[Rfam]
The record is a 60-nucleotide RNA sequence from Alkalinema sp. CACIAM 70d, which matches "Nitrogen stress-induced RNA 1" in Rfam. NCBI's taxonomy places the organism under Bacteria, Cyanobacteriota, Cyanophyceae, Leptolyngbyaceae, Alkalinema. The family's RNA type in Rfam is small RNA.

RNA sequence: UGGUAGAUGCACCCUGAUUUCCACCUCCAACUCAUGCCUAGUGAGUUGGGGGUUUUUUGU
Numbered sequence: 001u002g003g004u005a006g007a008u009g010c011a012c013c014c015u016g017a018u019u020u021c022c023a024c025c026u027c028c029a030a031c032u033c034a035u036g037c038c039u040a041g042u043g044a045g046u047u048g049g050g051g052g053u054u055u056u057u058u059g060u
Stems, first nucleotide, its partner, number of pairs: 002013003024052011